Background:
This 78-nucleotide RNA sequence from Glycine max belongs to the Rfam family "Small nucleolar RNA Z155". It is annotated as a C/D-box small nucleolar RNA. Its family is annotated with RNA processing and nucleolus in the Gene Ontology. The source organism's lineage runs through Eukaryota, Viridiplantae, Streptophyta, Euphyllophyta and Glycine subgen. Soja. A reference for the family is Chen et al. (2003), "The high diversity of snoRNAs in plants: identification and comparative study of 120 snoRNA genes from Oryza sativa", Nucleic Acids Res. The base pairs follow the family's consensus structure.

RNA sequence: CAUUGAAGUGAUGAUACCCUUUUUCUGAAUUUAAUAGAUGUGGACAUUGUUAAUCAUACUACAAUUAUCUAAUCAAUG
Dot-bracket structure: ((((((..................................................................))))))